Z30 small nucleolar RNA: a 94-nucleotide RNA from Synaphobranchus kaupii. Lineage of the source: Eukaryota > Chordata > Teleostei > Anguilliformes > Synaphobranchus. It is annotated as a C/D-box small nucleolar RNA. Rfam 15.1 lists 802 matches to the family in 647 species.

[Rfam]
RNA sequence: GACAAUGAUGAGGUAUGUCUACUGACUUGGUAGUGCCUUCCCCGGAAGGCACUGACUAAGGUGUGAUUAGACGUAUAAUCUUCUCUCUGAGUCG
Numbered sequence: 001g002a003c004a005a006u007g008a009u010g011a012g013g014u015a016u017g018u019c020u021a022c023u024g025a026c027u028u029g030g031u032a033g034u035g036c037c038u039u040c041c042c043c044g045g046a047a048g049g050c051a052c053u054g055a056c057u058a059a060g061g062u063g064u065g066a067u068u069a070g071a072c073g074u075a076u077a078a079u080c081u082u083c084u085c086u087c088u089g090a091g092u093c094g
Stems, first nucleotide, its partner, number of pairs: 002092002035050004